[Rfam]
RNA sequence: AAUCUUCUUGGCGAUGGAGUCCGCCACAAUCGCCCAAUGGGCUGAUGACUCCUACCAUGAG
Numbered sequence: 001a002a003u004c005u006u007c008u009u010g011g012c013g014a015u016g017g018a019g020u021c022c023g024c025c026a027c028a029a030u031c032g033c034c035c036a037a038u039g040g041g042c043u044g045a046u047g048a049c050u051c052c053u054a055c056c057a058u059g060a061g
Stems, first nucleotide, its partner, number of pairs: 010025004016052006032042003
RNA: Fluoride riboswitch aptamer (crcB RNA motif)
Organism: Pseudothermotoga hypogea